[Rfam]
M-box riboswitch aptamer (ykoK leader): a 170-nucleotide RNA from Streptomyces coryli. The match comes from Rfam's covariance-model search (148 bits). Pairs were carried over by alignment from the consensus structure. The source organism's lineage runs through Bacteria, Actinomycetota, Actinomycetes, Kitasatosporales and Streptomyces. The family has 159 seed sequences and 1,095 matches in Rfam 15.1.

RNA sequence: CAUGCACCUCGCUAGGUGAGGCGUCUGCACGGACACAGGCCACUGACCCCAAACGUCGAAAGACGCCCCGGGUCAGGACAGCUCCUCCCGGCUUAAGGGUUGAGCCCAAGUGGCUGCCGCCUCGACGGAUACGCCGUGUAGUGCCAAAGCUCUGUCGAGAGAGGUGACUU
Numbered sequence: 001c002a003u004g005c006a007c008c009u010c011g012c013u014a015g016g017u018g019a020g021g022c023g024u025c026u027g028c029a030c031g032g033a034c035a036c037a038g039g040c041c042a043c044u045g046a047c048c049c050c051a052a053a054c055g056u057c058g059a060a061a062g063a064c065g066c067c068c069c070g071g072g073u074c075a076g077g078a079c080a081g082c083u084c085c086u087c088c089c090g091g092c093u094u095a096a097g098g099g100u101u102g103a104g105c106c107c108a109a110g111u112g113g114c115u116g117c118c119g120c121c122u123c124g125a126c127g128g129a130u131a132c133g134c135c136g137u138g139u140a141g142u143g144c145c146a147a148a149g150c151u152c153u154g155u156c157g158a159g160a161g162a163g164g165u166g167a168c169u170u
Stems, first nucleotide, its partner, number of pairs: 005166006011156001013096001015151003020145003025141008039114005045074005054065004081105004087099003117128002
Dot-bracket structure: ....(((((((.[.(((..(((..((((((((......(((((.(((((....((((....))))....)))))......((((..(((......])))..))))....)))))..((........)).....)))))))).)))...)))....)....))))))....